[Rfam]
A member of the RNA family "Bacterial small subunit ribosomal RNA" from Treponema sp. Marseille-Q4132, 351 nucleotides of a longer RNA. Rfam 15.1 lists 42,628 matches to the family in 10,626 species. The literature on the family includes a 2002 paper in BMC Bioinformatics by Cannone et al., "The comparative RNA web (CRW) site: an online database of comparative sequence and structure information for ribosomal, intron, and other RNAs". Pairs were carried over by alignment from the consensus structure, which is taken from published work. Lineage of the source: Bacteria > Pseudomonadati > Spirochaetota > Treponemataceae > Treponema.

RNA sequence: GGCGUAAAGGGCAUGCAGGCGGGUCGCCAAGCUUGGUAAGAAAUACCGGGGCUCAACUCCGGAGCUAUAUUGAGAACUGGCGAGCUAGAGUUGCCGAAGGGUAUCCGGAAUUCCGUGUGAAGGGGUGAAAUCUGUAGAUAUGCGGAAGAACACCGAUGGCGAAGGCAGGAUACCGGCGGACGACUGACGCUGAGGUGCGAAGGUGCGGGGAGCAAACAGGAUUAGAUACCCUGGUAGUCCGCACAGUCAACGAUGUACACUGGGCGUGUGCGCAAGAGCGUGCGUGCCGAAGCAAACGCGAUAAGUGUACCGCCUGGGGAGUAUGCCCGCAAGGGUGAAACUCAAAGGAAU
Number, nucleotide and partner (000 for none) at each position: 001g314002g313003c312004g000005u000006a000007a000008a000009g311010g000011g198012c197013a196014u195015g000016c192017a000018g191019g190020c189021g000022g085023g000024u083025c082026g081027c080028c079029a000030a078031g077032c074033u073034u072035g071036g070037u069038a068039a000040g066041a000042a000043a000044u000045a000046c062047c061048g060049g059050g058051g057052c000053u000054c000055a000056a000057c051058u050059c049060c048061g047062g046063a000064g000065c000066u040067a000068u038069a037070u036071u035072g034073a033074g032075a000076a000077c031078u030079g028080g027081c026082g025083a024084g000085c022086u000087a000088g000089a185090g184091u183092u000093g000094c179095c178096g177097a000098a000099g000100g174101g173102u172103a171104u170105c169106c168107g151108g000109a000110a000111u147112u146113c145114c144115g143116u142117g141118u140119g000120a000121a000122g133123g132124g131125g000126u000127g000128a000129a000130a000131u124132c123133u122134g000135u000136a000137g000138a000139u000140a118141u117142g116143c115144g114145g113146a112147a111148g000149a000150a000151c107152a000153c000154c000155g000156a000157u000158g000159g166160c165161g000162a000163a000164g000165g160166c159167a000168g106169g105170a104171u103172a102173c101174c100175g000176g000177c096178g095179g094180a000181c000182g000183a091184c090185u089186g000187a000188c000189g020190c019191u018192g016193a000194g000195g014196u013197g012198c011199g000200a000201a000202g000203g244204u243205g242206c241207g240208g239209g000210g000211a000212g238213c237214a000215a000216a000217c233218a232219g231220g230221a000222u000223u000224a000225g000226a000227u000228a000229c000230c220231c219232u218233g217234g000235u000236a000237g213238u212239c208240c207241g206242c205243a204244c203245a000246g000247u000248c000249a000250a000251c000252g000253a000254u000255g310256u309257a308258c307259a306260c305261u000262g000263g288264g287265c286266g285267u284268g283269u282270g281271c280272g279273c278274a000275a000276g000277a000278g273279c272280g271281u270282g269283c268284g267285u266286g265287c264288c263289g000290a000291a000292g299293c298294a000295a000296a000297c000298g293299c292300g000301a000302u000303a000304a000305g260306u259307g258308u257309a256310c255311c009312g003313c002314c001315u000316g343317g342318g341319g000320a000321g000322u000323a000324u000325g336326c335327c334328c333329g000330c000331a000332a000333g328334g327335g326336u325337g000338a000339a000340a000341c318342u317343c316344a000345a000346a000347g000348g000349a000350a000351u000